[Rfam]
RNA sequence: CCCUUAUCCAGAACGGCAGAGGGGACGGCCCUAUGAAGCCUAGCAACCGGUCUUAGACCCUCACGGGCGUAGAUACGGUGCUAACUCCGGCGUCUGACAACACCGGUCAGGCGAAAGAUGAGGC
Numbered sequence: 001c002c003c004u005u006a007u008c009c010a011g012a013a014c015g016g017c018a019g020a021g022g023g024g025a026c027g028g029c030c031c032u033a034u035g036a037a038g039c040c041u042a043g044c045a046a047c048c049g050g051u052c053u054u055a056g057a058c059c060c061u062c063a064c065g066g067g068c069g070u071a072g073a074u075a076c077g078g079u080g081c082u083a084a085c086u087c088c089g090g091c092g093u094c095u096g097a098c099a100a101c102a103c104c105g106g107u108c109a110g111g112c113g114a115a116a117g118a119u120g121a122g123g124c
Base pairs, nucleotide, nucleotide: 002123003122004121005120006119007118008117013041015040016039017038021031022030023029026089027088028087042082043081044080045079047078048077050074051073052072053071086116091113092112093111094110095109096108097107098106
SAM riboswitch aptamer (S box leader): a 124-nucleotide RNA from SAR202 cluster bacterium AD-802-F09_MRT_200m. Rfam links the family to the GO term regulation of gene expression. Rfam describes the family as follows. The SAM riboswitch is found upstream of a number of genes which code for proteins involved in methionine or cysteine biosynthesis in Gram-positive bacteria.